[Rfam]
RNA sequence: CGCCAGUCCGAGGCCCCGGCACUCACCGGAGCCUGGUGCAAGAAGGA
Numbered sequence: 001c002g003c004c005a006g007u008c009c010g011a012g013g014c015c016c017c018g019g020c021a022c023u024c025a026c027c028g029g030a031g032c033c034u035g036g037u038g039c040a041a042g043a044a045g046g047a
Base pairs, nucleotide, nucleotide: 012033013032014031016029017028018027019026
The family of this 47-nucleotide sequence from Streptomyces sp. MspMP-M5 is "raiA-hairpin RNA". Rfam classes the family as a small RNA. Lineage of the source: Bacteria > Actinomycetota > Actinomycetes > Kitasatosporales > Streptomyces.